[Rfam]
RNA sequence: AAUGUCCUUCGGGGUCGGGUGAAAAUCCCAAUCGACGGUGAUGAAGAAAUUCUAAGCCCGUGAGCCUUUAUAGGCAGGAUUUGGUGCAAUUCCAAAGCCGACAGUAUAGUCUGGAUGGGAGAAGGACGAU
Number, nucleotide and partner (000 for none) at each position: 001a000002a000003u128004g127005u126006c125007c124008u123009u122010c121011g000012g000013g000014g000015u000016c000017g029018g028019g027020u000021g000022a000023a000024a000025a000026u000027c019028c018029c017030a000031a110032u109033c100034g099035a061036c060037g059038g058039u000040g000041a000042u000043g000044a000045a000046g000047a000048a000049a000050u000051u000052c000053u000054a000055a000056g098057c097058c038059c037060g036061u035062g000063a000064g000065c000066c074067u000068u000069u000070a000071u000072a000073g000074g066075c000076a000077g000078g000079a000080u096081u095082u094083g093084g092085u000086g000087c000088a000089a000090u000091u000092c084093c083094a082095a081096a080097g057098c056099c034100g033101a000102c113103a112104g111105u000106a000107u000108a000109g032110u031111c104112u103113g102114g000115a000116u000117g000118g000119g000120a000121g010122a009123a008124g007125g006126a005127c004128g003129a000130u000
FMN riboswitch aptamer (RFN element): a 130-nucleotide sequence from Rummeliibacillus sp. TYF005.